Notes
Rfam assigns this 320-nucleotide sequence from Naumovozyma castellii to the family "RNase MRP". A search with the family's covariance model found it, with a score of 73 bits. Rfam classes the family as a ribozyme. On this family, see Schmitt et al., FASEB J 1993: "Secondary structure of RNase MRP RNA as predicted by phylogenetic comparison". The family is grouped with related families in Rfam's "RNaseP clan". The organism belongs to Naumovozyma, within Eukaryota.
RNA sequence: UCCAUAGCCGAAGAAUCGUCACUAAUCGAAGCUUACAAAAUGGAAUCUUUAUUGAUUCAUCCAAUGCUUUGGGUAGAAAGUCUCCCACCAAUUCAUAUGCGGAAAACGUAAUAAGAUUUAAAAAUUUUAAAUUGUUUAAAUCAACUUAUUAAGAAAGUUUUACAUUUUCUUCUAGACCUAGGAUGUCUUUGCAUGUCCUGGUGUUAUCUUCGGUACUGAGAUCGAAAGUUAUUUGGAUCUUAAACGAUAGUCAUGACGAUUGCUUUUCCUUUUUAACAAGGUAAAGUAACCCAAUGGAGCUUACUAUUCUUGGCUCAUGG
Numbered sequence: 001u002c003c004a005u006a007g008c009c010g011a012a013g014a015a016u017c018g019u020c021a022c023u024a025a026u027c028g029a030a031g032c033u034u035a036c037a038a039a040a041u042g043g044a045a046u047c048u049u050u051a052u053u054g055a056u057u058c059a060u061c062c063a064a065u066g067c068u069u070u071g072g073g074u075a076g077a078a079a080g081u082c083u084c085c086c087a088c089c090a091a092u093u094c095a096u097a098u099g100c101g102g103a104a105a106a107c108g109u110a111a112u113a114a115g116a117u118u119u120a121a122a123a124a125u126u127u128u129a130a131a132u133u134g135u136u137u138a139a140a141u142c143a144a145c146u147u148a149u150u151a152a153g154a155a156a157g158u159u160u161u162a163c164a165u166u167u168u169c170u171u172c173u174a175g176a177c178c179u180a181g182g183a184u185g186u187c188u189u190u191g192c193a194u195g196u197c198c199u200g201g202u203g204u205u206a207u208c209u210u211c212g213g214u215a216c217u218g219a220g221a222u223c224g225a226a227a228g229u230u231a232u233u234u235g236g237a238u239c240u241u242a243a244a245c246g247a248u249a250g251u252c253a254u255g256a257c258g259a260u261u262g263c264u265u266u267u268c269c270u271u272u273u274u275a276a277c278a279a280g281g282u283a284a285a286g287u288a289a290c291c292c293a294a295u296g297g298a299g300c301u302u303a304c305u306a307u308u309c310u311u312g313g314c315u316c317a318u319g320g
Stems, first nucleotide, its partner, number of pairs: 002320004007314005014261006026072007043058005078302003082299004098110004119231003125227004130222001135219002146215001201210001203208001263286004268281004